[Rfam]
The record is a 187-nucleotide sequence from Trichonephila clavata, which matches "Wolbachia sRNA 46" in Rfam. It is annotated as a small RNA. The literature on the family includes a 2014 paper in Proc Natl Acad Sci U S A by Mayoral et al., "Wolbachia small noncoding RNAs and their role in cross-kingdom communications". Lineage of the source: Eukaryota > Eumetazoa > Protostomia > Ecdysozoa > Trichonephila.
RNA sequence: AUAUUGUACACUAGAAGGAUGUCAUCCCAGUGCCUAGACACUGGGAUCCAGGAAUUUUGAUUAGACAUCAAGUUAGUGAAUAUAAAAGUAGCUAAUCUUAUAUUAAAACACAACGGCUUUAAUGUGGUUGCAUUAAGGCUGGAUUCCAGUGUCAAGCACUGGAAUGACACCUUUGUGUUUGAUGCAA
Numbered sequence: 001a002u003a004u005u006g007u008a009c010a011c012u013a014g015a016a017g018g019a020u021g022u023c024a025u026c027c028c029a030g031u032g033c034c035u036a037g038a039c040a041c042u043g044g045g046a047u048c049c050a051g052g053a054a055u056u057u058u059g060a061u062u063a064g065a066c067a068u069c070a071a072g073u074u075a076g077u078g079a080a081u082a083u084a085a086a087a088g089u090a091g092c093u094a095a096u097c098u099u100a101u102a103u104u105a106a107a108a109c110a111c112a113a114c115g116g117c118u119u120u121a122a123u124g125u126g127g128u129u130g131c132a133u134u135a136a137g138g139c140u141g142g143a144u145u146c147c148a149g150u151g152u153c154a155a156g157c158a159c160u161g162g163a164a165u166g167a168c169a170c171c172u173u174u175g176u177g178u179u180u181g182a183u184g185c186a187a
Base pairs, nucleotide, nucleotide: 012181013180014179015178020169021168022167023166024165025164027162028161029160030159031158032157033156035154037153038152039151040150041149042148043147044146045145046144047143048142049141050140051139